[Rfam]
RNA: L31-Actinobacteria ribosomal protein leader
Organism: Microbispora rosea
RNA sequence: GCGGUACCGGUUCCCGCAGCCGCGCAUCACAGGUGUGCCGAUGCGCGCAGGCCGUGACAGGCGAAGCGACCCGGCGACC
Numbered sequence: 001g002c003g004g005u006a007c008c009g010g011u012u013c014c015c016g017c018a019g020c021c022g023c024g025c026a027u028c029a030c031a032g033g034u035g036u037g038c039c040g041a042u043g044c045g046c047g048c049a050g051g052c053c054g055u056g057a058c059a060g061g062c063g064a065a066g067c068g069a070c071c072c073g074g075c076g077a078c079c
Stems, first nucleotide, its partner, number of pairs: 003079003007074004015068003021063003